[Rfam]
RNA: Plastid-rpl20 3UTR RNA
Organism: Oryza meyeriana
RNA sequence: AUAGAAUUCCUAGAGAGCUAGACCUCCAGGAAGAUACAAUAAAUUAAGAUUAAGUAAUAGAAAUUAACGAGAAUAUCAUAAU
Numbered sequence: 001a002u003a004g005a006a007u008u009c010c011u012a013g014a015g016a017g018c019u020a021g022a023c024c025u026c027c028a029g030g031a032a033g034a035u036a037c038a039a040u041a042a043a044u045u046a047a048g049a050u051u052a053a054g055u056a057a058u059a060g061a062a063a064u065u066a067a068c069g070a071g072a073a074u075a076u077c078a079u080a081a082u
Stems, first nucleotide, its partner, number of pairs: 007032005013026003065078001067076001